[Rfam]
RNA sequence: CUUUGAAAUCAACGUAUAAUUGAACCUUAUGAAAGACACCAAGACAAUGGUGUAAGGGUAUUAUCUCGUUCCUUUUACUGUUGAGAGAGAUUUUAACGGGGAUAGGGUGAUAAUUGAUAGUAAUAUCAGUUAUAAGAUACACAAAGUGUAGAAAGAGAUAGUAGCAGUUUAAUAUAAGAGUUUAUAAGACAUAGGACUAAUCGUUGGUAAUCACAAAGCAACCCUUUGUAUAGGGGAGAUAAAAGACUUGUUAGUAGUAAUGCCUGUGGUGGGUAGAGUGAAGGCAAGAGAUACCAAUAAACCAAUAAUGUAGUUGAUACCUAGUGAUAGGAGUAUAAGAUUAGAGCCUAGUACGAGUAGCACAAAUCUACAUAUACUGAGAGAAAAUGAUAGUAUACAAGGUCAAUGUAUAACAAUUUUUGCCUAAAGCGUGUGAAAGUUAAUAAGAGAGAUUUAUUCUAGUAAAAAACAUAGGUUAAGAAGAAUAGUGGGUCGCUCCCCUAUGAGGCUCUUAACUUGCUAGUGGUCGAACAAUAAGUGGUUAUAUUAAAUUAGUAUGAGGAAUACCGAUUGUACUUUGAUUUCAA
Numbered sequence: 001c002u003u004u005g006a007a008a009u010c011a012a013c014g015u016a017u018a019a020u021u022g023a024a025c026c027u028u029a030u031g032a033a034a035g036a037c038a039c040c041a042a043g044a045c046a047a048u049g050g051u052g053u054a055a056g057g058g059u060a061u062u063a064u065c066u067c068g069u070u071c072c073u074u075u076u077a078c079u080g081u082u083g084a085g086a087g088a089g090a091u092u093u094u095a096a097c098g099g100g101g102a103u104a105g106g107g108u109g110a111u112a113a114u115u116g117a118u119a120g121u122a123a124u125a126u127c128a129g130u131u132a133u134a135a136g137a138u139a140c141a142c143a144a145a146g147u148g149u150a151g152a153a154a155g156a157g158a159u160a161g162u163a164g165c166a167g168u169u170u171a172a173u174a175u176a177a178g179a180g181u182u183u184a185u186a187a188g189a190c191a192u193a194g195g196a197c198u199a200a201u202c203g204u205u206g207g208u209a210a211u212c213a214c215a216a217a218g219c220a221a222c223c224c225u226u227u228g229u230a231u232a233g234g235g236g237a238g239a240u241a242a243a244a245g246a247c248u249u250g251u252u253a254g255u256a257g258u259a260a261u262g263c264c265u266g267u268g269g270u271g272g273g274u275a276g277a278g279u280g281a282a283g284g285c286a287a288g289a290g291a292u293a294c295c296a297a298u299a300a301a302c303c304a305a306u307a308a309u310g311u312a313g314u315u316g317a318u319a320c321c322u323a324g325u326g327a328u329a330g331g332a333g334u335a336u337a338a339g340a341u342u343a344g345a346g347c348c349u350a351g352u353a354c355g356a357g358u359a360g361c362a363c364a365a366a367u368c369u370a371c372a373u374a375u376a377c378u379g380a381g382a383g384a385a386a387a388u389g390a391u392a393g394u395a396u397a398c399a400a401g402g403u404c405a406a407u408g409u410a411u412a413a414c415a416a417u418u419u420u421u422g423c424c425u426a427a428a429g430c431g432u433g434u435g436a437a438a439g440u441u442a443a444u445a446a447g448a449g450a451g452a453u454u455u456a457u458u459c460u461a462g463u464a465a466a467a468a469a470c471a472u473a474g475g476u477u478a479a480g481a482a483g484a485a486u487a488g489u490g491g492g493u494c495g496c497u498c499c500c501c502u503a504u505g506a507g508g509c510u511c512u513u514a515a516c517u518u519g520c521u522a523g524u525g526g527u528c529g530a531a532c533a534a535u536a537a538g539u540g541g542u543u544a545u546a547u548u549a550a551a552u553u554a555g556u557a558u559g560a561g562g563a564a565u566a567c568c569g570a571u572u573g574u575a576c577u578u579u580g581a582u583u584u585c586a587a
Stems, first nucleotide, its partner, number of pairs: 007584002012579001014577001019572001021570001025057005037052005059163006071107003075102002078099009110133010138150005170550001172548001177543001182538002192350004197344006203306006222236004247288004255280002258277001261275003267296004309372005320331004354439001360434004423508003443458001446455001460522003474518002477515001479513002485504003490500003555567004